[Rfam]
RNA sequence: CACUGUUACUGUUCUUUCAGAAUCUGUCUAGCAAAUUUUCUGGCUUUUCCAGGAAAAUCCCC
Numbered sequence: 001c002a003c004u005g006u007u008a009c010u011g012u013u014c015u016u017u018c019a020g021a022a023u024c025u026g027u028c029u030a031g032c033a034a035a036u037u038u039u040c041u042g043g044c045u046u047u048u049c050c051a052g053g054a055a056a057a058u059c060c061c062c
Stems, first nucleotide, its partner, number of pairs: 035058007043050001
RNA: U7 small nuclear RNA
Organism: Gorilla gorilla